[Rfam]
RNA sequence: GGAUGCCUUCUCGAACUGAACGGAUAAGGGCCUAGAGAACCUCUAUUCUUCCAGGUCAGAAGGCAUCUCGUGUCACCGGGGUCACCCCAGGGCGGGCAUCGAAGCAUUACCCAUCAGUGGAUUCAG
Numbered sequence: 001g002g003a004u005g006c007c008u009u010c011u012c013g014a015a016c017u018g019a020a021c022g023g024a025u026a027a028g029g030g031c032c033u034a035g036a037g038a039a040c041c042u043c044u045a046u047u048c049u050u051c052c053a054g055g056u057c058a059g060a061a062g063g064c065a066u067c068u069c070g071u072g073u074c075a076c077c078g079g080g081g082u083c084a085c086c087c088c089a090g091g092g093c094g095g096g097c098a099u100c101g102a103a104g105c106a107u108u109a110c111c112c113a114u115c116a117g118u119g120g121a122u123u124c125a126g
Stems, first nucleotide, its partner, number of pairs: 001068010013057002016054003020050001022048004029041002101124003111120003
Dot-bracket structure: ((((((((((..((.(((.(.((((...((.........))...)))).).))).)).))))))))))................................(((.......(((....))).)))..
The record is a 126-nucleotide sequence from Actinospica durhamensis, which matches "Actinobacteria sRNA Ms_IGR-7" in Rfam.
The family has 14 seed sequences and 463 matches in Rfam 15.1.
For this family Rfam cites "Identification of small RNAs in Mycobacterium smegmatis using heterologous Hfq" (Li et al., RNA, 2013).
The source organism's lineage runs through Bacteria, Actinomycetota, Catenulisporales, Actinospicaceae and Actinospica.